[Rfam]
RNA sequence: UGGCUGUAGCUUAUAUGUGAUGAAUAUAUCGAGAAGUUUAAGUGGCGGGUUGUUGUUGAACUGUUCACAUAUCUGCUUACCGAUCUUCUUACAUUG
Dot-bracket structure: ..............................((((((.(.....(((.(((.((.(.........).))..))).))).....).))))))......